RNA sequence: UCAUCAGGCCGGGCCCCUCUGGCGGUUCCUUGAACCGCGAUGUCGGACUGAAAAA
Numbered sequence: 001u002c003a004u005c006a007g008g009c010c011g012g013g014c015c016c017c018u019c020u021g022g023c024g025g026u027u028c029c030u031u032g033a034a035c036c037g038c039g040a041u042g043u044c045g046g047a048c049u050g051a052a053a054a055a
Stems, first nucleotide, its partner, number of pairs: 006049002009046004022038006
The record is a 55-nucleotide RNA from Hartmannibacter diazotrophicus, which matches "terC RNA" in Rfam. The organism belongs to Hartmannibacter, within Bacteria. Rfam 15.1 lists 1,112 matches to the family in 772 species. The family's RNA type in Rfam is cis-regulatory element.